This 74-nucleotide RNA belongs to the Rfam family "DUF3800-II RNA". It is annotated as a small RNA.
[Rfam]
RNA sequence: AUAACAAGUUACCAGUGACAAAUUCCCAGGAUGGGAAAAGCCCGCAGUAAUGCAGACUAGCUGACUAACUGACC
Numbered sequence: 001a002u003a004a005c006a007a008g009u010u011a012c013c014a015g016u017g018a019c020a021a022a023u024u025c026c027c028a029g030g031a032u033g034g035g036a037a038a039a040g041c042c043c044g045c046a047g048u049a050a051u052g053c054a055g056a057c058u059a060g061c062u063g064a065c066u067a068a069c070u071g072a073c074c
Base pairs, nucleotide, nucleotide: 007070008069009068010067013063014062015061016060023037024036025035026034039058040057042055044053045052
The sequence is in the family's curated seed alignment.